[Rfam]
RNA sequence: UGGGCGGAUAGGAACCAUUUCGUGCCGGUGCGCGAUGUGGGCCGAUAAACCGCCAAUAAUGAACUGUUGGGGUCUACGUUGCGAGUUUCGCUAUUUGGCGAGAUCCGCUAUGGUUCCUAAUUGAACAUUU
Numbered sequence: 001u002g003g004g005c006g007g008a009u010a011g012g013a014a015c016c017a018u019u020u021c022g023u024g025c026c027g028g029u030g031c032g033c034g035a036u037g038u039g040g041g042c043c044g045a046u047a048a049a050c051c052g053c054c055a056a057u058a059a060u061g062a063a064c065u066g067u068u069g070g071g072g073u074c075u076a077c078g079u080u081g082c083g084a085g086u087u088u089c090g091c092u093a094u095u096u097g098g099c100g101a102g103a104u105c106c107g108c109u110a111u112g113g114u115u116c117c118u119a120a121u122u123g124a125a126c127a128u129u130u
Stems, first nucleotide, its partner, number of pairs: 003054005011043002015040004020035006066122001067120006079112001081108002083105002086102002089100003
RNA: Nematode snoRNA ceN39